[Rfam]
RNA: SAM/SAH riboswitch aptamer
Organism: Roseovarius gaetbuli
RNA sequence: AAUUCGUCACAACGGCUUCCUGGCGUGGCGCGAUAGAAUAUUGGAGCG
Numbered sequence: 001a002a003u004u005c006g007u008c009a010c011a012a013c014g015g016c017u018u019c020c021u022g023g024c025g026u027g028g029c030g031c032g033a034u035a036g037a038a039u040a041u042u043g044g045a046g047c048g
Stems, first nucleotide, its partner, number of pairs: 005030006013022002015047003019044002